The record is a 79-nucleotide RNA sequence, which matches "DUF3800-VII RNA" in Rfam. The family's RNA type in Rfam is small RNA.

[Rfam]
RNA sequence: AAGAAUCUCGCCGGAGUACACGAGGGUGAUUCACCAGCACGCAUAGCGUGCGGUAGUCGUGCCGGGUGAUUCUUUUUUU
Numbered sequence: 001a002a003g004a005a006u007c008u009c010g011c012c013g014g015a016g017u018a019c020a021c022g023a024g025g026g027u028g029a030u031u032c033a034c035c036a037g038c039a040c041g042c043a044u045a046g047c048g049u050g051c052g053g054u055a056g057u058c059g060u061g062c063c064g065g066g067u068g069a070u071u072c073u074u075u076u077u078u079u
Stems, first nucleotide, its partner, number of pairs: 001074007009066001011065004019061005025035004038050004